[Rfam]
RNA: Flavo-1 RNA
Organism: Flavobacterium pallidum
RNA sequence: GCCUAGCCCCGAUUGUAGAGGAAAUCCUUUGCGGAGUUUACGAAGCAAAGAUUGCAUCGGAAAGCGGGAAAUAGC
Numbered sequence: 001g002c003c004u005a006g007c008c009c010c011g012a013u014u015g016u017a018g019a020g021g022a023a024a025u026c027c028u029u030u031g032c033g034g035a036g037u038u039u040a041c042g043a044a045g046c047a048a049a050g051a052u053u054g055c056a057u058c059g060g061a062a063a064g065c066g067g068g069a070a071a072u073a074g075c
Stems, first nucleotide, its partner, number of pairs: 009067003013063002018058002023053004029048004